[Rfam]
RNA sequence: CGGGAUGGCUGGACGAUCGCGUGUCGCGCAAGCGGCCCGAGGAACGUCCGGGCUCCACAGAACAGGGUGGUGGGUAACGCCCACUCGGGGUAACCCGCAGGAUAGUGCCACAGAAAACAGACCGCCCGCCUCGUGCGGGUCAGGGUGAAAAGGUGGUGUAAGAGACCACCAGCGCCCCAGGUGACUGGGGCGGCUCGGUAAACCCCACCCGGAGCAAGGCCAGACAGGCUGCGUAUGAGGGCUGUUCGCCCCAGUAGUCGGGUAGGCCGCGUGAGGGCAUCGGCAACGGUGCUCCUAGAUGGAUGAUCGUCACCGGCAAUCGGGUAACCGCUGCCGGUACAGAACCCGGCGUACAGGCCAUCCCGUCCC
Numbered sequence: 001c002g003g004g005a006u007g008g009c010u011g012g013a014c015g016a017u018c019g020c021g022u023g024u025c026g027c028g029c030a031a032g033c034g035g036c037c038c039g040a041g042g043a044a045c046g047u048c049c050g051g052g053c054u055c056c057a058c059a060g061a062a063c064a065g066g067g068u069g070g071u072g073g074g075u076a077a078c079g080c081c082c083a084c085u086c087g088g089g090g091u092a093a094c095c096c097g098c099a100g101g102a103u104a105g106u107g108c109c110a111c112a113g114a115a116a117a118c119a120g121a122c123c124g125c126c127c128g129c130c131u132c133g134u135g136c137g138g139g140u141c142a143g144g145g146u147g148a149a150a151a152g153g154u155g156g157u158g159u160a161a162g163a164g165a166c167c168a169c170c171a172g173c174g175c176c177c178c179a180g181g182u183g184a185c186u187g188g189g190g191c192g193g194c195u196c197g198g199u200a201a202a203c204c205c206c207a208c209c210c211g212g213a214g215c216a217a218g219g220c221c222a223g224a225c226a227g228g229c230u231g232c233g234u235a236u237g238a239g240g241g242c243u244g245u246u247c248g249c250c251c252c253a254g255u256a257g258u259c260g261g262g263u264a265g266g267c268c269g270c271g272u273g274a275g276g277g278c279a280u281c282g283g284c285a286a287c288g289g290u291g292c293u294c295c296u297a298g299a300u301g302g303a304u305g306a307u308c309g310u311c312a313c314c315g316g317c318a319a320u321c322g323g324g325u326a327a328c329c330g331c332u333g334c335c336g337g338u339a340c341a342g343a344a345c346c347c348g349g350c351g352u353a354c355a356g357g358c359c360a361u362c363c364c365g366u367c368c369c
Stems, first nucleotide, its partner, number of pairs: 001365010011354001012311007020039002023036005044352003048349005053214004060247004065210005070084005085099001086097004100205002105203002107199003122144002124140006152170006172194001173192008218268004227259006239251004275294008
The family of this 369-nucleotide RNA sequence from Arthrobacter rhombi is "Bacterial RNase P class A". The base pairs follow the family's consensus structure, which is taken from published work. The source organism's lineage runs through Bacteria, Actinomycetota, Actinomycetes, Micrococcaceae and Arthrobacter.